Fluoride riboswitch aptamer (crcB RNA motif): a 68-nucleotide RNA from Providencia rustigianii.

RNA sequence: AUUUAUUUGGGAGAUGGCAUUCCUCCUACCCAAACCGUCCAUAUUGGACUGAUGAUGCCUACGUAAAC
Numbered sequence: 001a002u003u004u005a006u007u008u009g010g011g012a013g014a015u016g017g018c019a020u021u022c023c024u025c026c027u028a029c030c031c032a033a034a035c036c037g038u039c040c041a042u043a044u045u046g047g048a049c050u051g052a053u054g055a056u057g058c059c060u061a062c063g064u065a066a067a068c
Stems, first nucleotide, its partner, number of pairs: 010026004016059006037049004
The base pairs follow the family's consensus structure, which is taken from published work.